[Rfam]
RNA sequence: UCUUUGUCAAUGAUGUAUUCUAUAAAAAUGUCUGAACUUAUGAAUUUCAGUGAUUCUUAUUUAUUUUUUUAACUGAGACAAAGA
Numbered sequence: 001u002c003u004u005u006g007u008c009a010a011u012g013a014u015g016u017a018u019u020c021u022a023u024a025a026a027a028a029u030g031u032c033u034g035a036a037c038u039u040a041u042g043a044a045u046u047u048c049a050g051u052g053a054u055u056c057u058u059a060u061u062u063a064u065u066u067u068u069u070u071a072a073c074u075g076a077g078a079c080a081a082a083g084a
Stems, first nucleotide, its partner, number of pairs: 002083007